A member of the RNA family "Lysine riboswitch aptamer" from Staphylococcus sp. HGB0015, 172 nucleotides long. The source organism's lineage runs through Bacteria, Bacillati, Bacilli, Caryophanales and Staphylococcus. The family's consensus secondary structure is taken from published work.
RNA sequence: GAUUGAGUUAGAGGCGCGAUUUUAAAGAGUAAUCCUUGGUUUGUAUUGAUGAUACUGACACCAUAAGAUGAAAGGGAAAGUCGCCGAAAUGAGAAGUGAUCAUCAACACUUCUUGUUGGGCUAGUAUUCGAAAGGAACUAGACUGUCACAACAGUGAUGCGCUACCUAUUAA
Numbered sequence: 001g002a003u004u005g006a007g008u009u010a011g012a013g014g015c016g017c018g019a020u021u022u023u024a025a026a027g028a029g030u031a032a033u034c035c036u037u038g039g040u041u042u043g044u045a046u047u048g049a050u051g052a053u054a055c056u057g058a059c060a061c062c063a064u065a066a067g068a069u070g071a072a073a074g075g076g077a078a079a080g081u082c083g084c085c086g087a088a089a090u091g092a093g094a095a096g097u098g099a100u101c102a103u104c105a106a107c108a109c110u111u112c113u114u115g116u117u118g119g120g121c122u123a124g125u126a127u128u129c130g131a132a133a134g135g136a137a138c139u140a141g142a143c144u145g146u147c148a149c150a151a152c153a154g155u156g157a158u159g160c161g162c163u164a165c166c167u168a169u170u171a172a
Base pairs, nucleotide, nucleotide: 006167007166009164010163011162016084017083018082019081020080021079022078023077032069033068034067036065039062088117089116090115091114092113093112094111095110096109097108098107118144119143121141122140123139124138125137127135128134146157147156148155149154